Shown here is a 63-nucleotide RNA from Alphacoronavirus rousetti, a member of the family "Coronavirus 3' UTR pseudoknot". The family's RNA type in Rfam is cis-regulatory element. Its Rfam clan is "Coronavirus 3' UTR". Pairs were carried over by alignment from the consensus structure, which is taken from published work. From the family's description: Coronaviruses are plus-strand RNA viruses with ~30kb genomes. The 3' UTR region of coronavirus genomes contains a conserved ~55nt pseudoknot structure which has been shown to be necessary for viral genome replication. The sequence is in the family's curated seed alignment. NCBI's taxonomy places the organism under Viruses, Orthornavirae, Pisuviricota, Cornidovirineae, Bat coronavirus HKU10.

[Rfam]
RNA sequence: CUACUCUUAUACAGAAUGGUAAGCCUGUUUAUAAGCUAGUAUAAGUAGAGUUUAUAGAUAUUG
Numbered sequence: 001c002u003a004c005u006c007u008u009a010u011a012c013a014g015a016a017u018g019g020u021a022a023g024c025c026u027g028u029u030u031a032u033a034a035g036c037u038a039g040u041a042u043a044a045g046u047a048g049a050g051u052u053u054a055u056a057g058a059u060a061u062u063g
Stems, first nucleotide, its partner, number of pairs: 007044006028058002031055007